[Rfam]
A member of the RNA family "U5 spliceosomal RNA" from Carnegiea gigantea, 119 nucleotides long. The family's consensus secondary structure is taken from published work. The source organism's lineage runs through Eukaryota, Euphyllophyta, Magnoliopsida, Echinocereeae and Carnegiea. It is annotated as a spliceosomal small nuclear RNA.
RNA sequence: AGCCACGUAGUGGGCACAAAGCGAACUAUUCUUUCGCCUUUUACUAAAGAAUACAGUGUGCUCAUUGCAUUGAGUGGCAUACGGUAAUUUUUGUAGGGAGUCCUCUAGCCGUGAGGGCU
Numbered sequence: 001a002g003c004c005a006c007g008u009a010g011u012g013g014g015c016a017c018a019a020a021g022c023g024a025a026c027u028a029u030u031c032u033u034u035c036g037c038c039u040u041u042u043a044c045u046a047a048a049g050a051a052u053a054c055a056g057u058g059u060g061c062u063c064a065u066u067g068c069a070u071u072g073a074g075u076g077g078c079a080u081a082c083g084g085u086a087a088u089u090u091u092u093g094u095a096g097g098g099a100g101u102c103c104u105c106u107a108g109c110c111g112u113g114a115g116g117g118c119u
Stems, first nucleotide, its partner, number of pairs: 003077004008067011027053008095119001100118006